Purine riboswitch aptamer: a 100-nucleotide RNA from [Clostridium] innocuum. The family has 133 seed sequences and 4,097 matches in Rfam 15.1. Rfam describes the family as follows. Riboswitches are metabolite binding domains within certain messenger RNAs that serve as precision sensors for their corresponding targets. Allosteric rearrangement of mRNA structure is mediated by ligand binding, and this results in modulation of gene expression.

RNA sequence: AAUAAGAGUGGAAAUAUUACUUGUAUAGAAACAUGAUUGGAUGAUUCGUCUCUACUCGCCGACCGUAAAUUGGCGAACUACAAGUAAACUUUUUGGCUCA
Numbered sequence: 001a002a003u004a005a006g007a008g009u010g011g012a013a014a015u016a017u018u019a020c021u022u023g024u025a026u027a028g029a030a031a032c033a034u035g036a037u038u039g040g041a042u043g044a045u046u047c048g049u050c051u052c053u054a055c056u057c058g059c060c061g062a063c064c065g066u067a068a069a070u071u072g073g074c075g076a077a078c079u080a081c082a083a084g085u086a087a088a089c090u091u092u093u094u095g096g097c098u099c100a
Base pairs, nucleotide, nucleotide: 018086019085020084021083022082023081024080025079028047029046030045032043033042034041056076057075058074059073060072061071062070